[Rfam]
RNA sequence: CGCAUGGGGCCGAAAGCGACUGCCCCGUGAGGUCAAGGCCCAAAGUCGCAUCCACUGAAAUCCCAGAGGAUGUGCCAUG
Numbered sequence: 001c002g003c004a005u006g007g008g009g010c011c012g013a014a015a016g017c018g019a020c021u022g023c024c025c026c027g028u029g030a031g032g033u034c035a036a037g038g039c040c041c042a043a044a045g046u047c048g049c050a051u052c053c054a055c056u057g058a059a060a061u062c063c064c065a066g067a068g069g070a071u072g073u074g075c076c077a078u079g
Base pairs, nucleotide, nucleotide: 005027006026007025008024009023010022048073049072050071051070052069053068